[Rfam]
RNA sequence: AAGGGUCUUCAGGGCAGGGUGAAAUUCCCGACCGGCGGUGUCUAGGCAACUAGAAGUCCGCGAGCGAAAGCUGAUGUGGUGUGAUUCCACAACCGACAGUAGAGUCUGGAUGGGAGAAGACGAAG
Numbered sequence: 001a002a003g004g005g006u007c008u009u010c011a012g013g014g015c016a017g018g019g020u021g022a023a024a025u026u027c028c029c030g031a032c033c034g035g036c037g038g039u040g041u042c043u044a045g046g047c048a049a050c051u052a053g054a055a056g057u058c059c060g061c062g063a064g065c066g067a068a069a070g071c072u073g074a075u076g077u078g079g080u081g082u083g084a085u086u087c088c089a090c091a092a093c094c095g096a097c098a099g100u101a102g103a104g105u106c107u108g109g110a111u112g113g114g115a116g117a118a119g120a121c122g123a124a125g
Base pairs, nucleotide, nucleotide: 005121006120007119008118009117010116017029018028019027031105032104033095034094035061036060037059038058056093057092064071065070075091076090077089078088079087097108098107099106
This 125-nucleotide RNA sequence from Streptococcus pluranimalium belongs to the Rfam family "FMN riboswitch aptamer (RFN element)". It scores 118 bits against the family's covariance model. Rfam describes the family as follows. The RFN element is a highly conserved domain that is found frequently in the 5'-untranslated regions of prokaryotic mRNAs that encode for flavin mononucleotide (FMN) biosynthesis and transport proteins. The organism belongs to Streptococcus, within Bacteria.